[Rfam]
Shown here is a 478-nucleotide part of an RNA from Stackebrandtia endophytica, a member of the family "Bacterial large subunit ribosomal RNA".

RNA sequence: CUCCCCGAAAUGCAUUUAGGUGCAGCGUUGCGUGUUUCUUGCCGGAGGUAGAGCACUGAUUGGUCUAGGGGGCCGACAAGCUUACCGAAAUCAGUCAAACUCCGAAUGCCGGUAAGUGGAAAGCGCAGCAGUGAGACUGCGGGGGAUAAGCUUCGUAGUCGAGAGGGAAACAGCCCAGAUCACCAGCUAAGGCCCCUAAGCGUGUACUGAGUGGAAAAGGAUGUGGGAUCGCGUAGACAACCAGGAGGUUGGCUUAGAAGCAGCCACCCUUGAAAGAGUGCGUAAUAGCUCACUGGUCAAGUAGUUCCGCGCCGACAAUGUAGCGGGGCUUAAGUACACCGCCGAAGCUGUGGCAUUCACACGUGUACUCGGCAUCGUCCUACGGGAUGGUGUCCAGGUGUGUGGAUGGGUAGGGGAGCGUCCUGCCGGCAGAGAAGCCGCCGUGUGAACGAGUGGUGGAGCCGACGGGAGUGAGAAU
Dot-bracket structure: ((((((....(((((....))))).((((((((..(.((((((((.....(((...(((.((((...((((((......)))).))...)))).)))..)).).....)))))))).....)))))))).)...((((((((((......))))))))))....(((......)))...((((.(((...(((......(.((((((...........((..(((((((.((.......(((((.(((..(((.........)))..)))(...)(...((......)).).)))))...)).))))))).))....................))))))))))...)))))))(((((((((((.................................)))))))))))....))))))(.(((((.((((......((((((((....))).)))))...)))).)))))..).....
Numbered sequence: 001c002u003c004c005c006c007g008a009a010a011u012g013c014a015u016u017u018a019g020g021u022g023c024a025g026c027g028u029u030g031c032g033u034g035u036u037u038c039u040u041g042c043c044g045g046a047g048g049u050a051g052a053g054c055a056c057u058g059a060u061u062g063g064u065c066u067a068g069g070g071g072g073c074c075g076a077c078a079a080g081c082u083u084a085c086c087g088a089a090a091u092c093a094g095u096c097a098a099a100c101u102c103c104g105a106a107u108g109c110c111g112g113u114a115a116g117u118g119g120a121a122a123g124c125g126c127a128g129c130a131g132u133g134a135g136a137c138u139g140c141g142g143g144g145g146a147u148a149a150g151c152u153u154c155g156u157a158g159u160c161g162a163g164a165g166g167g168a169a170a171c172a173g174c175c176c177a178g179a180u181c182a183c184c185a186g187c188u189a190a191g192g193c194c195c196c197u198a199a200g201c202g203u204g205u206a207c208u209g210a211g212u213g214g215a216a217a218a219g220g221a222u223g224u225g226g227g228a229u230c231g232c233g234u235a236g237a238c239a240a241c242c243a244g245g246a247g248g249u250u251g252g253c254u255u256a257g258a259a260g261c262a263g264c265c266a267c268c269c270u271u272g273a274a275a276g277a278g279u280g281c282g283u284a285a286u287a288g289c290u291c292a293c294u295g296g297u298c299a300a301g302u303a304g305u306u307c308c309g310c311g312c313c314g315a316c317a318a319u320g321u322a323g324c325g326g327g328g329c330u331u332a333a334g335u336a337c338a339c340c341g342c343c344g345a346a347g348c349u350g351u352g353g354c355a356u357u358c359a360c361a362c363g364u365g366u367a368c369u370c371g372g373c374a375u376c377g378u379c380c381u382a383c384g385g386g387a388u389g390g391u392g393u394c395c396a397g398g399u400g401u402g403u404g405g406a407u408g409g410g411u412a413g414g415g416g417a418g419c420g421u422c423c424u425g426c427c428g429g430c431a432g433a434g435a436a437g438c439c440g441c442c443g444u445g446u447g448a449a450c451g452a453g454u455g456g457u458g459g460a461g462c463c464g465a466c467g468g469g470a471g472u473g474a475g476a477a478u
Stems, first nucleotide, its partner, number of pairs: 001418006011024005026131001027129007036122001038116008051103001052101002057097003061093004068086002070083004135160010165176003180353004185349003191343003200340001202339006219313002223310007231302002240297005246270003251265003271275001276291001280289002354408011419473001421470005427464004437457005442451003